The record is an 83-nucleotide sequence, which matches "c-di-GMP-II-GAG riboswitch aptamer" in Rfam.
[Rfam]
Nucleotides: 083
Base pairs, nucleotide, nucleotide: 002083003082004081008078009077010076011075013060014059015058022054023053024052025051026050027049029047038072039071041067042066043065044064
Number, partner (000 for none) and nucleotide at each position: 001000c002083c003082a004081g005000a006000c007000a008078c009077g010076g011075g012000g013060g014059g015058c016000u017000u018000u019000g020000a021000c022054g023053c024052g025051c026050g027049g028000c029047c030000c031000a032000c033000a034000c035000u036000c037000u038072g039071g040000c041067c042066g043065c044064c045000g046000g047029g048000a049027c050026c051025g052024c053023g054022c055000c056000g057000a058015g059014c060013c061000a062000c063000u064044g065043g066042c067041g068000a069000g070000a071039c072038c073000g074000a075011c076010c077009c078008g079000c080000c081004c082003u083002g

A reference for the family is Weinberg et al. (2017), "Bioinformatic analysis of riboswitch structures uncovers variant classes with altered ligand specificity", Proc Natl Acad Sci U S A. The family is grouped with related families in Rfam's "c-di-GMP_II riboswitch clan". It is one of the family's seed sequences.